[Rfam]
Description: The record is an 80-nucleotide RNA sequence from Takifugu rubripes, which matches "mir-181 microRNA precursor family" in Rfam. NCBI's taxonomy places the organism under Eukaryota, Actinopteri, Tetraodontoidei, Tetraodontidae, Takifugu. The literature on the family includes a 2001 paper in Cell by Ambros, "microRNAs: tiny regulators with great potential". Its family is annotated with RISC complex and miRNA-mediated post-transcriptional gene silencing in the Gene Ontology.
RNA sequence: AGUCUUUGGGGAACAUUCAACGCUGUCGGUGAGUUUUGUCUCCGAAAAACCAUCGACUGUUGAGUGUACCCUGACACUUG
Number, nucleotide and partner (000 for none) at each position: 001a000002g079003u000004c000005u000006u074007u073008g072009g000010g000011g000012a000013a000014c066015a065016u064017u063018c062019a061020a060021c059022g058023c000024u000025g057026u056027c055028g054029g053030u052031g051032a000033g050034u049035u048036u047037u000038g000039u000040c000041u000042c000043c000044g000045a000046a000047a036048a035049a034050c033051c031052a030053u029054c028055g027056a026057c025058u022059g021060u020061u019062g018063a017064g016065u015066g014067u000068a000069c000070c000071c000072u008073g007074a006075c000076a000077c000078u000079u002080g000